[Rfam]
RNA sequence: AGUGUUUAUUGAUGAAAAACAUGGAUCCAGCGUCAGGCAUGGCGCCCGAAACGCAUGAGGAAAUACCCCAUGCUGCCUUCCUUCUGAAAACACU
Numbered sequence: 001a002g003u004g005u006u007u008a009u010u011g012a013u014g015a016a017a018a019a020c021a022u023g024g025a026u027c028c029a030g031c032g033u034c035a036g037g038c039a040u041g042g043c044g045c046c047c048g049a050a051a052c053g054c055a056u057g058a059g060g061a062a063a064u065a066c067c068c069c070a071u072g073c074u075g076c077c078u079u080c081c082u083u084c085u086g087a088a089a090a091c092a093c094u
Base pairs, nucleotide, nucleotide: 001094002093003092004091005090
The record is a 94-nucleotide RNA sequence from Astyanax mexicanus, which matches "Small nucleolar RNA U83B" in Rfam. For this family Rfam cites "Characterisation of the U83 and U84 small nucleolar RNAs: two novel 2'-O-ribose methylation guide RNAs that lack complementarities to ribosomal RNAs" (Jady and Kiss, Nucleic Acids Res, 2000). The organism belongs to Astyanax, within Eukaryota.